[Rfam]
RNA sequence: UGAGAUGAAAUUAGUGUUUGGACAUGCAAUUCCAUAUCUGAUUUCAUCUCAUG
Numbered sequence: 001u002g003a004g005a006u007g008a009a010a011u012u013a014g015u016g017u018u019u020g021g022a023c024a025u026g027c028a029a030u031u032c033c034a035u036a037u038c039u040g041a042u043u044u045c046a047u048c049u050c051a052u053g
Stems, first nucleotide, its partner, number of pairs: 001051014015036003018029003